Nucleotides: 086
Stems, first nucleotide, its partner, number of pairs: 012074001013071006025059004030054005
Number, partner (000 for none) and nucleotide at each position: 001000g002000u003000u004000g005000c006000u007000u008000g009000g010000c011000g012074a013071u014070a015069g016068c017067c018066u019000c020000u021000c022000c023000u024000a025059g026058g027057c028056u029000u030054u031053g032052u033051c034050u035000u036000u037000a038000a039000u040000u041000u042000u043000a044000a045000a046000a047000u048000u049000u050034a051033g052032a053031c054030a055000u056028a057027g058026c059025c060000u061000a062000g063000a064000a065000u066018a067017g068016g069015u070014u071013a072000g073000g074012u075000c076000a077000g078000g079000a080000c081000u082000u083000g084000u085000g086000u
The family of this 86-nucleotide RNA from Cotesia congregata is "mir-282 microRNA precursor family". For this family Rfam cites "Direct sequencing and expression analysis of a large number of miRNAs in Aedes aegypti and a multi-species survey of novel mosquito miRNAs" (Li et al., BMC Genomics, 2009). The match comes from Rfam's covariance-model search (60 bits). Taxonomically the source falls in Cotesia (Eukaryota, Panarthropoda, Altocrustacea, Apocrita).